Rfam assigns this 113-nucleotide RNA from Sinanaerobacter chloroacetimidivorans to the family "Molybdenum/Tungsten riboswitch aptamer (Moco RNA motif)". Gene Ontology terms of the family: molybdenum ion binding, tungstate binding and regulation of gene expression. Pairs were carried over by alignment from the consensus structure, which is taken from published work. For this family Rfam cites "Identification of 22 candidate structured RNAs in bacteria using the CMfinder comparative genomics pipeline" (Weinberg et al., Nucleic Acids Res, 2007).
RNA sequence: GAGAUAUGAUGUCUCCGAUUUCCAUUUGACAGUUUUGCCAGAUGGAAACGAUAGGGUAGAGAGAGCAAUUUCUUUGCCUGCCACUUGUGCAAAGGAGAGAUAAGUACCUUCCG
Numbered sequence: 001g002a003g004a005u006a007u008g009a010u011g012u013c014u015c016c017g018a019u020u021u022c023c024a025u026u027u028g029a030c031a032g033u034u035u036u037g038c039c040a041g042a043u044g045g046a047a048a049c050g051a052u053a054g055g056g057u058a059g060a061g062a063g064a065g066c067a068a069u070u071u072c073u074u075u076g077c078c079u080g081c082c083a084c085u086u087g088u089g090c091a092a093a094g095g096a097g098a099g100a101u102a103a104g105u106a107c108c109u110u111c112c113g
Stems, first nucleotide, its partner, number of pairs: 003107001012098005019048010030037002054079011080090002